[Rfam]
RNA sequence: GAAGCACAGAUGUCUAAUCCUGUUUUAGGAGCGGGGGACCCAUUUUUUUUGGGGCGGAUCCAGAAUGAUAAAGAGAACUGGUAAGGUACCCUUAGCCUGAGCCCGACAGCUAACCUCGUAGGCAGUAUAAGGGGCUGCU
Numbered sequence: 001g002a003a004g005c006a007c008a009g010a011u012g013u014c015u016a017a018u019c020c021u022g023u024u025u026u027a028g029g030a031g032c033g034g035g036g037g038a039c040c041c042a043u044u045u046u047u048u049u050u051g052g053g054g055c056g057g058a059u060c061c062a063g064a065a066u067g068a069u070a071a072a073g074a075g076a077a078c079u080g081g082u083a084a085g086g087u088a089c090c091c092u093u094a095g096c097c098u099g100a101g102c103c104c105g106a107c108a109g110c111u112a113a114c115c116u117c118g119u120a121g122g123c124a125g126u127a128u129a130a131g132g133g134g135c136u137g138c139u
Base pairs, nucleotide, nucleotide: 011124012123013122014121018030019029020028031119032118033117034116035115036114041051042050052104053103054102060081061080062079063078084098085097086096087095
RNA: c-di-AMP riboswitch aptamer (ydaO/yuaA leader)